[Rfam]
The family of this 600-nucleotide part of an RNA from Desmophyllum pertusum is "Eukaryotic large subunit ribosomal RNA".
The organism belongs to Desmophyllum, within Eukaryota.
RNA sequence: CGGGGAAAGAAGACCCUGUUGAGCUUGACUCUAGUCUGACCUUGUGAAAAGACAUGAGAGGUGUAGAAUAAGUGGGAGCAGCAAUGCGCCGGUGAAAUACCACUACUCUUAUCGUUUUUUUACUUAUUGGAUGGAGCGGAGGCGAACCGCAAGGUUCACUUUCUGGACUUAAGGCCGGUCUCCGGACCGGUCGAUCCGAGUCCAAGACACCGUCAGGUUGGGAGUUUGGCUGGGGCGGCACAUCUGUCAAAUGAUAACGCAGGUGUCCUAAGGUGAGCUCAAUGAGAACAGAAAUCUCAUGUAGAACAAAAGGGUAAAAGCUCACUUGAUUUUGAUUUUCAGUAUGAAUACAAACCGUGAAAGCGUGGCCUAUCGAUCCUUUAGUCUUUAGGAGUUUUAAGCUAGAGGUGUCAGAAAAGUUACCACAGGGAUAACUGGCUUGUGGCAGCCAAGCGUUCAUAGCGACGUUGCUUUUUGAUCCUUCGAUGUCGGCUCUUCCUAUCAUUGCGAAGCAGAAUUCGCCAAGUGAUGGAUUGUUCACCCACCAAUAGGGAACGUGAGCUGGGUUUAGACCGUCGUGAGACAGGUUAGUUUUACCCU
Numbered sequence: 001c002g003g004g005g006a007a008a009g010a011a012g013a014c015c016c017u018g019u020u021g022a023g024c025u026u027g028a029c030u031c032u033a034g035u036c037u038g039a040c041c042u043u044g045u046g047a048a049a050a051g052a053c054a055u056g057a058g059a060g061g062u063g064u065a066g067a068a069u070a071a072g073u074g075g076g077a078g079c080a081g082c083a084a085u086g087c088g089c090c091g092g093u094g095a096a097a098u099a100c101c102a103c104u105a106c107u108c109u110u111a112u113c114g115u116u117u118u119u120u121u122a123c124u125u126a127u128u129g130g131a132u133g134g135a136g137c138g139g140a141g142g143c144g145a146a147c148c149g150c151a152a153g154g155u156u157c158a159c160u161u162u163c164u165g166g167a168c169u170u171a172a173g174g175c176c177g178g179u180c181u182c183c184g185g186a187c188c189g190g191u192c193g194a195u196c197c198g199a200g201u202c203c204a205a206g207a208c209a210c211c212g213u214c215a216g217g218u219u220g221g222g223a224g225u226u227u228g229g230c231u232g233g234g235g236c237g238g239c240a241c242a243u244c245u246g247u248c249a250a251a252u253g254a255u256a257a258c259g260c261a262g263g264u265g266u267c268c269u270a271a272g273g274u275g276a277g278c279u280c281a282a283u284g285a286g287a288a289c290a291g292a293a294a295u296c297u298c299a300u301g302u303a304g305a306a307c308a309a310a311a312g313g314g315u316a317a318a319a320g321c322u323c324a325c326u327u328g329a330u331u332u333u334g335a336u337u338u339u340c341a342g343u344a345u346g347a348a349u350a351c352a353a354a355c356c357g358u359g360a361a362a363g364c365g366u367g368g369c370c371u372a373u374c375g376a377u378c379c380u381u382u383a384g385u386c387u388u389u390a391g392g393a394g395u396u397u398u399a400a401g402c403u404a405g406a407g408g409u410g411u412c413a414g415a416a417a418a419g420u421u422a423c424c425a426c427a428g429g430g431a432u433a434a435c436u437g438g439c440u441u442g443u444g445g446c447a448g449c450c451a452a453g454c455g456u457u458c459a460u461a462g463c464g465a466c467g468u469u470g471c472u473u474u475u476u477g478a479u480c481c482u483u484c485g486a487u488g489u490c491g492g493c494u495c496u497u498c499c500u501a502u503c504a505u506u507g508c509g510a511a512g513c514a515g516a517a518u519u520c521g522c523c524a525a526g527u528g529a530u531g532g533a534u535u536g537u538u539c540a541c542c543c544a545c546c547a548a549u550a551g552g553g554a555a556c557g558u559g560a561g562c563u564g565g566g567u568u569u570a571g572a573c574c575g576u577c578g579u580g581a582g583a584c585a586g587g588u589u590a591g592u593u594u595u596a597c598c599c600u
Stems, first nucleotide, its partner, number of pairs: 003600003007595002015429004020425002022421005028225004035217006044123010054112007071104005078087002127205005137198004145156004173192005228241001229239003242264006267368002273325006279305002282300006306315002330354003335349004356365003379407006387401004438479001440477001442476001444472006453463002490565001491563004495557001496554005503528002507522005530544003534540001571589004575584003